[Rfam]
RNA sequence: CACCGAGUCCGUGGUUCCGGAGGACCGGAACCUGGUGCAAAAGGGA
Numbered sequence: 001c002a003c004c005g006a007g008u009c010c011g012u013g014g015u016u017c018c019g020g021a022g023g024a025c026c027g028g029a030a031c032c033u034g035g036u037g038c039a040a041a042a043g044g045g046a
Stems, first nucleotide, its partner, number of pairs: 013032008
This 46-nucleotide RNA sequence from Streptomyces sp. CdTB01 belongs to the Rfam family "raiA-hairpin RNA".
It scores 62 bits against the family's covariance model.
The organism belongs to Streptomyces, within Bacteria.